Shown here is a 45-nucleotide sequence from Desmophyllum pertusum, a member of the family "Histone 3' UTR stem-loop". The mRNAs of metazoan histone genes lack a poly-A tail. 3' end processing occurs at a site between a highly conserved stem-loop (modelled by this family) and a purine rich region around 20 nts downstream (the histone downstream element, or HDE). The stem-loop is bound by a 31 kDa stem-loop binding protein (SLBP - also termed the histone hairpin binding protein, or HBP). Together with U7 snRNA binding of the HDE, SLBP binding nucleate s the formation of the processing complex. The histone 3' UTR stem-loop is also involved in nucleocytoplasmic transport of the mRNA, and in stability regulation and translation efficiency in the cytoplasm.
RNA sequence: CAAACGGCUCCUUUAGGAGCCACCAAUUUAAUAAAAGUCAUUGAC
Numbered sequence: 001c002a003a004a005c006g007g008c009u010c011c012u013u014u015a016g017g018a019g020c021c022a023c024c025a026a027u028u029u030a031a032u033a034a035a036a037g038u039c040a041u042u043g044a045c
Stems, first nucleotide, its partner, number of pairs: 006021006

Lineage of the source: Eukaryota > Opisthokonta > Eumetazoa > Cnidaria > Desmophyllum. Pairs were carried over by alignment from the consensus structure, which is taken from published work.